[Rfam]
RNA sequence: CAGGGUACCCUUUACCCUCCUUAGUUCAAACAAAUGAACUAAAAUUUUAAAAAGACACAAUUUUUUGGAAAACUAGUUCAUUUGUUUGAACUAAAGAGGGUCAAAUGGUACUCUG
Numbered sequence: 001c002a003g004g005g006u007a008c009c010c011u012u013u014a015c016c017c018u019c020c021u022u023a024g025u026u027c028a029a030a031c032a033a034a035u036g037a038a039c040u041a042a043a044a045u046u047u048u049a050a051a052a053a054g055a056c057a058c059a060a061u062u063u064u065u066u067g068g069a070a071a072a073c074u075a076g077u078u079c080a081u082u083u084g085u086u087u088g089a090a091c092u093a094a095a096g097a098g099g100g101u102c103a104a105a106u107g108g109u110a111c112u113c114u115g
Base pairs, nucleotide, nucleotide: 002114003113004112005111006110007109008108009107011105012104013103014101015100016099017098018097019096021094022093023092024091025090026089027088028087029086030085031084032083033082034081035080036079037078038077039076040075041074
RNA: MIR5070 microRNA precursor family